Shown here is a 232-nucleotide sequence from Trinickia dinghuensis, a member of the family "Burkholderia sRNA Bp1_Cand738_SIPHT". The literature on the family includes a 2012 paper in BMC Genomics by Khoo et al., "Computational discovery and RT-PCR validation of novel Burkholderia conserved and Burkholderia pseudomallei unique sRNAs".
[Rfam]
RNA sequence: GCAAAAGCCGGCGCGAUUGAUAACCGUGCGCCGGCACAAUGACCACCAAAUAGACCGUAAGAGCGCCGUGCAGGGCGGCGUACGGUAGCGCGACACUUUGUUCGUGCCGCGAGCUGGAUCGAGGGCAGUAACACAACAAAACUACUUGGCCCUGCAGCCAAUGUGGACGGAUUCUAGCAGGCUUUUAUAGAUCGUCAAUGCUACAAAUUCUCGAAAUCAUAACAAAAUGUAA
Numbered sequence: 001g002c003a004a005a006a007g008c009c010g011g012c013g014c015g016a017u018u019g020a021u022a023a024c025c026g027u028g029c030g031c032c033g034g035c036a037c038a039a040u041g042a043c044c045a046c047c048a049a050a051u052a053g054a055c056c057g058u059a060a061g062a063g064c065g066c067c068g069u070g071c072a073g074g075g076c077g078g079c080g081u082a083c084g085g086u087a088g089c090g091c092g093a094c095a096c097u098u099u100g101u102u103c104g105u106g107c108c109g110c111g112a113g114c115u116g117g118a119u120c121g122a123g124g125g126c127a128g129u130a131a132c133a134c135a136a137c138a139a140a141a142c143u144a145c146u147u148g149g150c151c152c153u154g155c156a157g158c159c160a161a162u163g164u165g166g167a168c169g170g171a172u173u174c175u176a177g178c179a180g181g182c183u184u185u186u187a188u189a190g191a192u193c194g195u196c197a198a199u200g201c202u203a204c205a206a207a208u209u210c211u212c213g214a215a216a217u218c219a220u221a222a223c224a225a226a227a228u229g230u231a232a
Stems, first nucleotide, its partner, number of pairs: 008034007057134002064080005087115003091111001162200003167195004173191004

By type it is a small RNA.